Iron response element I: a 39-nucleotide RNA from Otolemur garnettii. On this family, see Hentze et al., Science 1987: "Identification of the iron-responsive element for the translational regulation of human ferritin mRNA". The source organism's lineage runs through Eukaryota, Opisthokonta, Craniata, Tetrapoda and Otolemur. Rfam 15.1 lists 6,829 matches to the family in 599 species.

RNA sequence: CUGUGUCUUGCUUCAACCACAAGAAUUUGAAUGGAACAG
Numbered sequence: 001c002u003g004u005g006u007c008u009u010g011c012u013u014c015a016a017c018c019a020c021a022a023g024a025a026u027u028u029g030a031a032u033g034g035a036a037c038a039g
Base pairs, nucleotide, nucleotide: 001039002038003037004036006035007034008033010032012031013030014029015028016027